This 107-nucleotide RNA sequence from Zea mays belongs to the Rfam family "Small nucleolar RNA Z103". Rfam 15.1 lists 2,844 matches to the family in 233 species.
Nucleotides: 107
Base pairs, nucleotide, nucleotide: 001107002106003105004104005103
Number, partner (000 for none) and nucleotide at each position: 001107u002106u003105u004104g005103a006000u007000g008000u009000g010000a011000c012000g013000a014000u015000c016000c017000u018000u019000u020000c021000c022000c023000c024000a025000a026000a027000u028000u029000a030000c031000c032000g033000a034000c035000u036000u037000u038000g039000a040000u041000u042000a043000u044000a045000c046000u047000g048000u049000g050000c051000g052000a053000u054000u055000u056000u057000u058000c059000g060000a061000g062000u063000u064000c065000u066000g067000u068000c069000u070000c071000c072000u073000c074000g075000g076000a077000g078000a079000u080000g081000g082000c083000u084000c085000u086000u087000a088000a089000g090000c091000c092000a093000g094000a095000u096000a097000u098000u099000c100000u101000g102000a103005u104004c105003g106002a107001a
Gene Ontology terms of the family: nucleolus and RNA processing. Lineage of the source: Eukaryota > Mesangiospermae > Petrosaviidae > Tripsacinae > Zea.